[Rfam]
RNA sequence: UACCCUCACAAAGGGGAGUAGCUGUCAGGGAUUUUAAAAACACCCUGAAACAAAGUCGUCAUUACGUGGUUUUCUUCCACCGGCUUUGUUGGUACAUAUGAAUGACGUGCUUAGCAAGACCUUUGCCUUCUUAUCUUUGAUAAGGGCAGGGGUCUUUUUUGUUUUUUAACAGCAACAAGCAUU
Numbered sequence: 001u002a003c004c005c006u007c008a009c010a011a012a013g014g015g016g017a018g019u020a021g022c023u024g025u026c027a028g029g030g031a032u033u034u035u036a037a038a039a040a041c042a043c044c045c046u047g048a049a050a051c052a053a054a055g056u057c058g059u060c061a062u063u064a065c066g067u068g069g070u071u072u073u074c075u076u077c078c079a080c081c082g083g084c085u086u087u088g089u090u091g092g093u094a095c096a097u098a099u100g101a102a103u104g105a106c107g108u109g110c111u112u113a114g115c116a117a118g119a120c121c122u123u124u125g126c127c128u129u130c131u132u133a134u135c136u137u138u139g140a141u142a143a144g145g146g147c148a149g150g151g152g153u154c155u156u157u158u159u160u161g162u163u164u165u166u167u168a169a170c171a172g173c174a175a176c177a178a179g180c181a182u183u
Stems, first nucleotide, its partner, number of pairs: 026047005049090010066080004094183001
Manganese Mn2+ riboswitch aptamer (yybP-ykoY): a 183-nucleotide sequence from Ammoniphilus oxalaticus.
The family has 29 seed sequences and 1,126 matches in Rfam 15.1.
Lineage of the source: Bacteria > Bacillati > Bacillota > Paenibacillaceae > Ammoniphilus.
The literature on the family includes a 2015 paper in Mol Cell by Price et al., "Mn(2+)-sensing mechanisms of yybP-ykoY orphan riboswitches".